[Rfam]
RNA sequence: CUUCCUCAGCCUUACUCCAGAGCCUUCUCACCUGUAGAGUGCCCUGGCAUUGCCUGAGGAUAGAUGAGAAAGCACGUGUCCCUCCCCAGGAAGAAUCCGCUUUCUUCUGGGGCCUACACAUUGAGCUGACAGU
Numbered sequence: 001c002u003u004c005c006u007c008a009g010c011c012u013u014a015c016u017c018c019a020g021a022g023c024c025u026u027c028u029c030a031c032c033u034g035u036a037g038a039g040u041g042c043c044c045u046g047g048c049a050u051u052g053c054c055u056g057a058g059g060a061u062a063g064a065u066g067a068g069a070a071a072g073c074a075c076g077u078g079u080c081c082c083u084c085c086c087c088a089g090g091a092a093g094a095a096u097c098c099g100c101u102u103u104c105u106u107c108u109g110g111g112g113c114c115u116a117c118a119c120a121u122u123g124a125g126c127u128g129a130c131a132g133u
Stems, first nucleotide, its partner, number of pairs: 003060007011052001017047004022042001024039003071127003075123002084112006091106004
Record summary:
Shown here is a 133-nucleotide RNA sequence from Loxodonta africana, a member of the family "Small nucleolar RNA SNORA49". From the family's description: The snoRNA ACA49 has no identified RNA target. NB genomic sequence 1-nt different from published. The source organism's lineage runs through Eukaryota, Vertebrata, Euteleostomi, Tetrapoda and Loxodonta. The family's consensus secondary structure was predicted with RNAalifold. It is one of the family's seed sequences. By type it is an H/ACA-box small nucleolar RNA.